Background: The record is an 83-nucleotide sequence from Synechococcus sp. RS9916, which matches "Cyanobacterial ribosomal protein S1 leader" in Rfam. On this family, see Weinberg et al., Nucleic Acids Res 2007: "Identification of 22 candidate structured RNAs in bacteria using the CMfinder comparative genomics pipeline". cyano-S1 is a ncRNA recognized in the 5-prime region of genes encoding 30S ribosomal protein S1, it has been proposed as an cis regulation element. It scores 59 bits against the family's covariance model.

[Rfam]
RNA sequence: AUCUGUAGGAUGGAAGAUUGAUUGCUUGAGGUCGGCGGGCCUCGGCAUCCUUCCUUUCGCACUGUCUCCGGGCAGACCGCCAC
Numbered sequence: 001a002u003c004u005g006u007a008g009g010a011u012g013g014a015a016g017a018u019u020g021a022u023u024g025c026u027u028g029a030g031g032u033c034g035g036c037g038g039g040c041c042u043c044g045g046c047a048u049c050c051u052u053c054c055u056u057u058c059g060c061a062c063u064g065u066c067u068c069c070g071g072g073c074a075g076a077c078c079g080c081c082a083c
Base pairs, nucleotide, nucleotide: 023047024046025045026044028043029042030041031040032039034081035080036079037078038077062075063074064073065072066071

Taxonomically the source falls in Synechococcus (Bacteria, Cyanobacteriota, Cyanophyceae, Synechococcales).